[Rfam]
RNA sequence: CUCUGGAGAGUUUCUUGUAAAAAGAACACCAAAGGGGAAGCCUUACGGGCGAAUCUCUCAGGUUAAAGGACAGAG
Dot-bracket structure: (((((......((((.......)))).(((.(..(((..((.......))....))))..))).......)))))
Numbered sequence: 001c002u003c004u005g006g007a008g009a010g011u012u013u014c015u016u017g018u019a020a021a022a023a024g025a026a027c028a029c030c031a032a033a034g035g036g037g038a039a040g041c042c043u044u045a046c047g048g049g050c051g052a053a054u055c056u057c058u059c060a061g062g063u064u065a066a067a068g069g070a071c072a073g074a075g
Stems, first nucleotide, its partner, number of pairs: 001075005012026004028063003032058001035057003040050002
Shown here is a 75-nucleotide RNA sequence from Desulfosporosinus orientis, a member of the family "Glycine riboswitch aptamer". Lineage of the source: Bacteria > Bacillati > Clostridia > Desulfitobacteriaceae > Desulfosporosinus orientis. Clan: Glycine riboswitch clan.